[Rfam]
The family of this 52-nucleotide RNA sequence from Methylocapsa palsarum is "serC leader". The literature on the family includes a 2005 paper in Genome Biol by Corbino et al., "Evidence for a second class of S-adenosylmethionine riboswitches and other regulatory RNA motifs in alpha-proteobacteria". Rfam classes the family as a cis-regulatory leader. Rfam describes the family as follows. This family is a putative regulatory RNA structure that is found upstream of the serC-serA operon in some alpha-proteobacteria. The final stem of the structure overlaps the ribosome binding site of the serC reading frame. Gene Ontology term of the family: regulation of gene expression.
RNA sequence: AGGCGGGACACCUUUCCCCAACGAAAGGCGCCCAUCUGCAAGGAUGGUCAUA
Numbered sequence: 001a002g003g004c005g006g007g008a009c010a011c012c013u014u015u016c017c018c019c020a021a022c023g024a025a026a027g028g029c030g031c032c033c034a035u036c037u038g039c040a041a042g043g044a045u046g047g048u049c050a051u052a
Base pairs, nucleotide, nucleotide: 011028012027013026014025015024016023032047033046034045035044036043037042